[Rfam]
RNA sequence: GGCCCGAACUGGGAGUAGUGUAGAUAGGUGUGAUUGGCUGACCCUACUAAACUACUCUACUUCAGGUUUGUGCCU
Numbered sequence: 001g002g003c004c005c006g007a008a009c010u011g012g013g014a015g016u017a018g019u020g021u022a023g024a025u026a027g028g029u030g031u032g033a034u035u036g037g038c039u040g041a042c043c044c045u046a047c048u049a050a051a052c053u054a055c056u057c058u059a060c061u062u063c064a065g066g067u068u069u070g071u072g073c074c075u
Base pairs, nucleotide, nucleotide: 001074002073003072005070006069007068008067009066012063013062014061015060016059017058018057020055021054022053023052025050027048028047029046030045032043034041035040